[Rfam]
RNA sequence: ACCUAUGAUGUGUUGCCCCAAGUGUGAGAUAUAGGUAUCUCCAAGUCCCUGUUAGUCAGGGAGAACCUACUUGUGGUUCCUAUAUUCUAAUGAGAUCAAUGGGCUUUUACUGAGGU
Numbered sequence: 001a002c003c004u005a006u007g008a009u010g011u012g013u014u015g016c017c018c019c020a021a022g023u024g025u026g027a028g029a030u031a032u033a034g035g036u037a038u039c040u041c042c043a044a045g046u047c048c049c050u051g052u053u054a055g056u057c058a059g060g061g062a063g064a065a066c067c068u069a070c071u072u073g074u075g076g077u078u079c080c081u082a083u084a085u086u087c088u089a090a091u092g093a094g095a096u097c098a099a100u101g102g103g104c105u106u107u108u109a110c111u112g113a114g115g116u
Stems, first nucleotide, its partner, number of pairs: 001116003047061005